[Rfam]
Shown here is a 600-nucleotide part of an RNA from Cinara cedri, a member of the family "Eukaryotic small subunit ribosomal RNA". A reference for the family is Yusupov et al. (2001), "Crystal structure of the ribosome at 5.5 A resolution", Science.
RNA sequence: GUAGUCGGAUCUGUGUCUGGGCGGUGCCGGACCACCCUCGCGGCCGGUCGUCUCGGGGUGUUAGUUACCGGCACGUCGGCCGGACGUAUUGUCGGCAGGCGGACACGCGUCCCGGAUCCUCGUACGUGCCGUCCGACCACGCGUCGUGGCGGUCGUCGGGGGCCGCUGACGGCGGCCGCCUACUCCAAUCUUGCUGUGCGGUGCUCUUCACCGAGUGCCGUCGGCGGGCCGACACGUUUACUUUGAACAAAUUAGAGUGCUCAAAGCAGGCUAAAAUCUGACGGUGCGGCCUCGCGGCCGUUCCGCCAAAAAGCCCUGAAUACUGGUCGCAUGGAAUAAUGGAACAAGACCUCGGUCCCGCGCAUCUCCGCCCUUCGCGGGCGCGCGAAACCGCCCCUCGGGGUGUUUCCGUGCGCGGGCCGCCGGGCCGCGCGGGUUUAUUCUCGCGCGCGUCCCGCCGGGUCGGUUUUCGGGACCGGAGGUAAUGAUCAACAGAGACGGGCGGGGGCAUUCGUACCGAGACGUUAGAGGUGAAAUUCUUGGAUCGUCUCGAGACGAACUGACGCGAAAGCAUUUGCCAAGUACGUACUCGUAUGAUCA
Numbered sequence: 001g002u003a004g005u006c007g008g009a010u011c012u013g014u015g016u017c018u019g020g021g022c023g024g025u026g027c028c029g030g031a032c033c034a035c036c037c038u039c040g041c042g043g044c045c046g047g048u049c050g051u052c053u054c055g056g057g058g059u060g061u062u063a064g065u066u067a068c069c070g071g072c073a074c075g076u077c078g079g080c081c082g083g084a085c086g087u088a089u090u091g092u093c094g095g096c097a098g099g100c101g102g103a104c105a106c107g108c109g110u111c112c113c114g115g116a117u118c119c120u121c122g123u124a125c126g127u128g129c130c131g132u133c134c135g136a137c138c139a140c141g142c143g144u145c146g147u148g149g150c151g152g153u154c155g156u157c158g159g160g161g162g163c164c165g166c167u168g169a170c171g172g173c174g175g176c177c178g179c180c181u182a183c184u185c186c187a188a189u190c191u192u193g194c195u196g197u198g199c200g201g202u203g204c205u206c207u208u209c210a211c212c213g214a215g216u217g218c219c220g221u222c223g224g225c226g227g228g229c230c231g232a233c234a235c236g237u238u239u240a241c242u243u244u245g246a247a248c249a250a251a252u253u254a255g256a257g258u259g260c261u262c263a264a265a266g267c268a269g270g271c272u273a274a275a276a277u278c279u280g281a282c283g284g285u286g287c288g289g290c291c292u293c294g295c296g297g298c299c300g301u302u303c304c305g306c307c308a309a310a311a312a313g314c315c316c317u318g319a320a321u322a323c324u325g326g327u328c329g330c331a332u333g334g335a336a337u338a339a340u341g342g343a344a345c346a347a348g349a350c351c352u353c354g355g356u357c358c359c360g361c362g363c364a365u366c367u368c369c370g371c372c373c374u375u376c377g378c379g380g381g382c383g384c385g386c387g388a389a390a391c392c393g394c395c396c397c398u399c400g401g402g403g404u405g406u407u408u409c410c411g412u413g414c415g416c417g418g419g420c421c422g423c424c425g426g427g428c429c430g431c432g433c434g435g436g437u438u439u440a441u442u443c444u445c446g447c448g449c450g451c452g453u454c455c456c457g458c459c460g461g462g463u464c465g466g467u468u469u470u471c472g473g474g475a476c477c478g479g480a481g482g483u484a485a486u487g488a489u490c491a492a493c494a495g496a497g498a499c500g501g502g503c504g505g506g507g508g509c510a511u512u513c514g515u516a517c518c519g520a521g522a523c524g525u526u527a528g529a530g531g532u533g534a535a536a537u538u539c540u541u542g543g544a545u546c547g548u549c550u551c552g553a554g555a556c557g558a559a560c561u562g563a564c565g566c567g568a569a570a571g572c573a574u575u576u577g578c579c580a581a582g583u584a585c586g587u588a589c590u591c592g593u594a595u596g597a598u599c600a
Base pairs, nucleotide, nucleotide: 004598005597006596495591496590497589499586500585502583503582507579508578509577510576513557514556518552519551520550521549522548523547524546528539529538530537565572566571

The base pairs follow the family's consensus structure, which is taken from published work. A search with the family's covariance model found it, with a score of 1570 bits. The source organism's lineage runs through Eukaryota, Protostomia, Altocrustacea, Pterygota and Cinara.